A member of the RNA family "ZMP/ZTP riboswitch aptamer (pfl RNA motif)" from Streptomyces qinzhouensis, 93 nucleotides long.

RNA sequence: GGUGCGCGCGGCGACUGGCGUACGGGGAGAUCACCUCGAGGGAGCCGGGCGCGCAGGAGCAUCACGAGGGUGCCGACCGCCUGGGUACCCCGG
Numbered sequence: 001g002g003u004g005c006g007c008g009c010g011g012c013g014a015c016u017g018g019c020g021u022a023c024g025g026g027g028a029g030a031u032c033a034c035c036u037c038g039a040g041g042g043a044g045c046c047g048g049g050c051g052c053g054c055a056g057g058a059g060c061a062u063c064a065c066g067a068g069g070g071u072g073c074c075g076a077c078c079g080c081c082u083g084g085g086u087a088c089c090c091c092g093g
Base pairs, nucleotide, nucleotide: 003053004052005051006050007049009047010046011045012044015041016040017081018080019079020078024037025036026035027034070088071087072086073085074084
Taxonomically the source falls in Streptomyces (Bacteria, Bacillati, Actinomycetota, Actinomycetes). It scores 44 bits against the family's covariance model.